[Rfam]
Nucleotides: 101
Stems, first nucleotide, its partner, number of pairs: 018087008029048001030046005057077007
Number, partner (000 for none) and nucleotide at each position: 001000a002000g003000a004000a005000a006000u007000u008000g009000c010000a011000u012000a013000g014000a015000a016000g017000a018087u019086c020085c021084u022083c023082a024081u025080a026000u027000a028000a029048g030046a031045u032044g033043g034042g035000a036000a037000u038000a039000g040000g041000g042034c043033c044032c045031a046030u047000g048029c049000g050000u051000c052000u053000c054000u055000a056000c057077c058076c059075g060074g061073a062072a063071a064000c065000c066000g067000u068000a069000a070000a071063u072062u073061u074060c075059c076058g077057g078000a079000c080025u081024a082023u083022g084021a085020g086019g087018g088000a089000a090000g091000u092000c093000u094000g095000u096000u097000c098000a099000u100000a101000c
Shown here is a 101-nucleotide RNA from Halobacillus salinus, a member of the family "Purine riboswitch aptamer". The family is grouped with related families in Rfam's "Purine riboswitches". Rfam links the family to the GO term purine nucleobase biosynthetic process.